The record is a 46-nucleotide RNA from Mytilus coruscus, which matches "Histone 3' UTR stem-loop" in Rfam. A search with the family's covariance model found it, with a score of 40 bits.

RNA sequence: UAAACGGCCCUUUUCAGGGCCACCAAUUCUUUACAGAAAAAGUCUU
Numbered sequence: 001u002a003a004a005c006g007g008c009c010c011u012u013u014u015c016a017g018g019g020c021c022a023c024c025a026a027u028u029c030u031u032u033a034c035a036g037a038a039a040a041a042g043u044c045u046u
Base pairs, nucleotide, nucleotide: 006021007020008019009018010017011016